[Rfam]
RNA sequence: AGAUCGAUGAUGACGCCAAAGAUGCAUUCCUUGAAAAGCGGAACAAAAUGAGAACUCAUACCGUCGUUGUUCUCAUCAGUAACUGAGGUCC
Numbered sequence: 001a002g003a004u005c006g007a008u009g010a011u012g013a014c015g016c017c018a019a020a021g022a023u024g025c026a027u028u029c030c031u032u033g034a035a036a037a038g039c040g041g042a043a044c045a046a047a048a049u050g051a052g053a054a055c056u057c058a059u060a061c062c063g064u065c066g067u068u069g070u071u072c073u074c075a076u077c078a079g080u081a082a083c084u085g086a087g088g089u090c091c
Stems, first nucleotide, its partner, number of pairs: 002090004025052001028051002031046003

Rfam assigns this 91-nucleotide sequence from Myotis myotis to the family "Small nucleolar RNA SNORD116". Rfam classes the family as a C/D-box small nucleolar RNA. Gene Ontology terms of the family: nucleolus and RNA processing. The family has 48 seed sequences and 3,260 matches in Rfam 15.1. For this family Rfam cites "Identification of brain-specific and imprinted small nucleolar RNA genes exhibiting an unusual genomic organization" (Cavaille et al., Proc Natl Acad Sci U S A, 2000). It scores 59 bits against the family's covariance model. Taxonomically the source falls in Myotis (Eukaryota, Opisthokonta, Chordata, Chiroptera).